[Rfam]
RNA sequence: UGAUUGAUUACAAGAAGGUCUAACCAACCACCAGUAGCGAGUGUUGCGCCUUUGGCGGAGCGUUGCAAGCGGUUAAGUCUGCUACAAACGUGAACAAGAGAGGUGAAGCGUACACAGCGUACUAUACAGGUCACAGGGGAUAUGCACAUCCCUGAAGCUAUAAUUAGCAUCGUUAGUCUUAUUUAAUGCAGAUGGCGACAUUUUGAUGGGUAAUGGAAGCCAAUACAAAGGAAUCGCUAAAGGUAAGAUUCUGGAGGAUUUGCCGGUGUGUUUGGGCG
Numbered sequence: 001u002g003a004u005u006g007a008u009u010a011c012a013a014g015a016a017g018g019u020c021u022a023a024c025c026a027a028c029c030a031c032c033a034g035u036a037g038c039g040a041g042u043g044u045u046g047c048g049c050c051u052u053u054g055g056c057g058g059a060g061c062g063u064u065g066c067a068a069g070c071g072g073u074u075a076a077g078u079c080u081g082c083u084a085c086a087a088a089c090g091u092g093a094a095c096a097a098g099a100g101a102g103g104u105g106a107a108g109c110g111u112a113c114a115c116a117g118c119g120u121a122c123u124a125u126a127c128a129g130g131u132c133a134c135a136g137g138g139g140a141u142a143u144g145c146a147c148a149u150c151c152c153u154g155a156a157g158c159u160a161u162a163a164u165u166a167g168c169a170u171c172g173u174u175a176g177u178c179u180u181a182u183u184u185a186a187u188g189c190a191g192a193u194g195g196c197g198a199c200a201u202u203u204u205g206a207u208g209g210g211u212a213a214u215g216g217a218a219g220c221c222a223a224u225a226c227a228a229a230g231g232a233a234u235c236g237c238u239a240a241a242g243g244u245a246a247g248a249u250u251c252u253g254g255a256g257g258a259u260u261u262g263c264c265g266g267u268g269u270g271u272u273u274g275g276g277c278g
Stems, first nucleotide, its partner, number of pairs: 010035002014031001017029003021246001023244002037118002041115004045110002047105007057095001165270001167269006188263006194221003199215004226257001230252006
RNA: Group II catalytic intron D1-D4-6
Organism: Candidatus Venteria ishoeyi